[Rfam]
RNA sequence: GAUGAGCUCGGUAACGUGGGCUUGUCACCAAGUGGAGCAUUAAGGUAUUUGAAUAAUUUGGUAUUGAAUUCCAGGUUGACAUUAUGAGCUAGCUUUGAUUUGCAUGCCCCUUUCCAAGUUGGGCAGUGUAUGCUAUGUUUCAGGCUAACGCUUGAAUAAUAUUCUCCCUAAACUUGAGGGUAAUGCGUGAGGCUGGUUUCACAGAGCAGCGAUUACCUCUCUCUCUCAACGGUGGAAGGAUUACAAGUCAUUUGCUCAUAUUGUCAAUUACCCUGUCAAUUAGCCUUGGAAUCCACAAAAUUCAACAAAUAUUUUU
Numbered sequence: 001g002a003u004g005a006g007c008u009c010g011g012u013a014a015c016g017u018g019g020g021c022u023u024g025u026c027a028c029c030a031a032g033u034g035g036a037g038c039a040u041u042a043a044g045g046u047a048u049u050u051g052a053a054u055a056a057u058u059u060g061g062u063a064u065u066g067a068a069u070u071c072c073a074g075g076u077u078g079a080c081a082u083u084a085u086g087a088g089c090u091a092g093c094u095u096u097g098a099u100u101u102g103c104a105u106g107c108c109c110c111u112u113u114c115c116a117a118g119u120u121g122g123g124c125a126g127u128g129u130a131u132g133c134u135a136u137g138u139u140u141c142a143g144g145c146u147a148a149c150g151c152u153u154g155a156a157u158a159a160u161a162u163u164c165u166c167c168c169u170a171a172a173c174u175u176g177a178g179g180g181u182a183a184u185g186c187g188u189g190a191g192g193c194u195g196g197u198u199u200c201a202c203a204g205a206g207c208a209g210c211g212a213u214u215a216c217c218u219c220u221c222u223c224u225c226u227c228a229a230c231g232g233u234g235g236a237a238g239g240a241u242u243a244c245a246a247g248u249c250a251u252u253u254g255c256u257c258a259u260a261u262u263g264u265c266a267a268u269u270a271c272c273c274u275g276u277c278a279a280u281u282a283g284c285c286u287u288g289g290a291a292u293c294c295a296c297a298a299a300a301u302u303c304a305a306c307a308a309a310u311a312u313u314u315u316u
Base pairs, nucleotide, nucleotide: 001038003036004023005022006021007020008019009018010017028035029034042315043314044313045312046311047310048309049308050307051306055302057299058298059297061294063292064291065290067281068280069279070278072275073274074273075272077266078265079264080263081262083260084259086257087256088255090254091253100250102248103247105245106244109239110238112237113236114235115234116233118230119229120228121227122226123225126222128167130165132163134161135160136159139156140155141154142153143152144151145150176219177218178217179216186211187210188209193204194203195202
A member of the RNA family "Plant signal recognition particle RNA" from Zostera marina, 316 nucleotides long. Pairs were carried over by alignment from the consensus structure, which is taken from published work.